[Rfam]
RNA: TPP riboswitch aptamer (THI element)
Organism: Pusillimonas sp. T2
RNA sequence: GCGCUUCGCUAGGGGUGCCGCUUUUUGCGGCUGAGAUAGUCCCUUUGAACCUGUUGAGAUAAUCCUCGCGCAGGAAAGCGACGUCAUCGCUGA
Numbered sequence: 001g002c003g004c005u006u007c008g009c010u011a012g013g014g015g016u017g018c019c020g021c022u023u024u025u026u027g028c029g030g031c032u033g034a035g036a037u038a039g040u041c042c043c044u045u046u047g048a049a050c051c052u053g054u055u056g057a058g059a060u061a062a063u064c065c066u067c068g069c070g071c072a073g074g075a076a077a078g079c080g081a082c083g084u085c086a087u088c089g090c091u092g093a
Stems, first nucleotide, its partner, number of pairs: 006081005011044004016038001017031005050074004055068004
Dot-bracket structure: .....(((((((((.((((((.....)))))......)..)))).....((((.((((......))))..))))..)))))............